[Rfam]
This 195-nucleotide sequence from Rhinopithecus roxellana belongs to the Rfam family "Mason-Pfizer monkey virus packaging signal".
The family's RNA type in Rfam is cis-regulatory element.
Lineage of the source: Eukaryota > Vertebrata > Teleostomi > Primates > Rhinopithecus.
RNA sequence: AAAAAUCCCUCCGACCAUUGCGGGAGCCUGCUGCGUCGGAGUUGACGGUAAGUUACAUGCCCGAAAUGGGACAAGAAUUAAGCCAGCAUCAAAUCUACGUAGGACAAUUAAAAGAGGCUUUAGAGACAUGGGGAGUAAAGGUUAAAAGUGGUGACUUAUUUAGAUUUUUUGAUUUUGUGAAAGAUACCUGCCCUU
Numbered sequence: 001a002a003a004a005a006u007c008c009c010u011c012c013g014a015c016c017a018u019u020g021c022g023g024g025a026g027c028c029u030g031c032u033g034c035g036u037c038g039g040a041g042u043u044g045a046c047g048g049u050a051a052g053u054u055a056c057a058u059g060c061c062c063g064a065a066a067u068g069g070g071a072c073a074a075g076a077a078u079u080a081a082g083c084c085a086g087c088a089u090c091a092a093a094u095c096u097a098c099g100u101a102g103g104a105c106a107a108u109u110a111a112a113a114g115a116g117g118c119u120u121u122a123g124a125g126a127c128a129u130g131g132g133g134a135g136u137a138a139a140g141g142u143u144a145a146a147a148g149u150g151g152u153g154a155c156u157u158a159u160u161u162a163g164a165u166u167u168u169u170u171g172a173u174u175u176u177g178u179g180a181a182a183g184a185u186a187c188c189u190g191c192c193c194u195u
Stems, first nucleotide, its partner, number of pairs: 007048002010045002015039002019035005058071001060070004079122003082118003129171008139157006180195002183192001185190001